[Rfam]
Rfam assigns this 129-nucleotide sequence from Clostridium paraputrificum to the family "Ribosomal protein L20 leader". Lineage of the source: Bacteria > Bacillati > Clostridia > Clostridiaceae > Clostridium. The base pairs follow the family's consensus structure, which was predicted with CMfinder. From the family's description: This family is a putative r-protein leader autoregulatory structure found in B. subtilis and other low-GC Gram-positive bacteria. It is located in the 5' untranslated regions of mRNAs encoding initiation factor 3 followed by ribosomal proteins L35 and L20 (infC-rpmI-rplT). A Rho-independent transcription terminator structure that is probably involved in regulation is included at the 3' end. It is annotated as a cis-regulatory leader.
RNA sequence: UUUGUUAAGAAGAAACAGCCGUUUCUCACCAUGCAACAAUUGAGUUAGCUUGGUUAUUUAUCUAGAUUAUUUAUGUGAAGUAAUUACGAUAAUAGAAAACGGCGUUCAACGCCGUUUUUUUUAUAUUAU
Numbered sequence: 001u002u003u004g005u006u007a008a009g010a011a012g013a014a015a016c017a018g019c020c021g022u023u024u025c026u027c028a029c030c031a032u033g034c035a036a037c038a039a040u041u042g043a044g045u046u047a048g049c050u051u052g053g054u055u056a057u058u059u060a061u062c063u064a065g066a067u068u069a070u071u072u073a074u075g076u077g078a079a080g081u082a083a084u085u086a087c088g089a090u091a092a093u094a095g096a097a098a099a100c101g102g103c104g105u106u107c108a109a110c111g112c113c114g115u116u117u118u119u120u121u122u123a124u125a126u127u128a129u
Stems, first nucleotide, its partner, number of pairs: 011026006028054003033049002036045002098116008